[Rfam]
The family of this 77-nucleotide RNA sequence from Parnassius apollo is "Mammalian CPEB3 ribozyme". Pairs were carried over by alignment from the consensus structure, which is taken from published work. The family has 14 seed sequences and 5,706 matches in Rfam 15.1.
RNA sequence: ACCUGAUGUUAGCGGGUCAUUGUAGAAGCGUGCUCGUCGCGACCCCUGCCAGCCCUUUUCAGGGCUGCAAUUCUACA
Numbered sequence: 001a002c003c004u005g006a007u008g009u010u011a012g013c014g015g016g017u018c019a020u021u022g023u024a025g026a027a028g029c030g031u032g033c034u035c036g037u038c039g040c041g042a043c044c045c046c047u048g049c050c051a052g053c054c055c056u057u058u059u060c061a062g063g064g065c066u067g068c069a070a071u072u073c074u075a076c077a
Stems, first nucleotide, its partner, number of pairs: 014045005021077007028040003050067007